[Rfam]
RNA sequence: AGAGUCCCACAAGAAAGGAGAUAGCGAAACCAUCUUGGCCGCGAGUUUUGCGCGGGUCGUCGCGAGGCGGCACGUGAAGCGUAAACAGCGGUAUCGGUGGGCCGGGUAUUGAGCUUCGAAAAUCUCGAUCGGGUACGCCGACUCUGUCGCAGAAGAGGAAGGCCACAUCGGCGAUGGCGCUAACGCGAGCCAGCGCUGGGACCCGCGUAGUCGUAGACCC
Dot-bracket structure: .........(((((..((...[.[[....)).))))).((((..((((((((((.((((((....)))))).))))...)).)))).))))...................(.(((.((...........(((((.((((..((((........))))...)))....((((((.((((......]].])))).)))))))))))))).))))........
A member of the RNA family "Group II catalytic intron D1-D4-6" from a Bryobacteraceae bacterium, 220 nucleotides long. The source organism's lineage runs through Bacteria, Acidobacteriota, Terriglobia, Bryobacterales and Bryobacteraceae. Rfam links the family to the GO term Group II intron splicing. Group II introns are found in rRNA, tRNA and mRNA of organelles in fungi, plants and protists, and also in mRNA in bacteria. A search with the family's covariance model found it, with a score of 162 bits.